[Rfam]
RNA: Glutamine riboswitch aptamer (glnA leader)
RNA sequence: AUCGUUCAUCUAUUCAUAUAGACGGAAGUAGGCAGACGCUGAAGGAACGCACU
Numbered sequence: 001a002u003c004g005u006u007c008a009u010c011u012a013u014u015c016a017u018a019u020a021g022a023c024g025g026a027a028g029u030a031g032g033c034a035g036a037c038g039c040u041g042a043a044g045g046a047a048c049g050c051a052c053u
Base pairs, nucleotide, nucleotide: 003049004048005047006046007045009022010021011020012019013018025050031040032039033038